mir-17 microRNA precursor family: a 74-nucleotide RNA from Capra hircus. Rfam describes the family as follows. This family represents the microRNA (miRNA) precursor mir-17, family, which includes mir-20, mir-91, and mir-103. miRNAs are transcribed as ~70nt precursors (modelled here) and subsequently processed by the Dicer enzyme to give a ~22nt product. The sequence is in the family's curated seed alignment. The organism belongs to Capra, within Eukaryota. The family has 234 seed sequences and 4,687 matches in Rfam 15.1. Its family is annotated with miRNA-mediated post-transcriptional gene silencing and RISC complex in the Gene Ontology. Pairs were carried over by alignment from the consensus structure, which was predicted with RNAalifold.
[Rfam]
RNA sequence: AGUACCAAAGUGCUCACAGUGCAGGUAGUUUUGGCAACAUUCUACUGUAGUGUGGGCACUUCCAGUACUCUUGG
Numbered sequence: 001a002g003u004a005c006c007a008a009a010g011u012g013c014u015c016a017c018a019g020u021g022c023a024g025g026u027a028g029u030u031u032u033g034g035c036a037a038c039a040u041u042c043u044a045c046u047g048u049a050g051u052g053u054g055g056g057c058a059c060u061u062c063c064a065g066u067a068c069u070c071u072u073g074g
Base pairs, nucleotide, nucleotide: 001069002068004066005065008061009060010059011058012057013056014055015054016053017052018051020049021048022047024046025045026044027043028042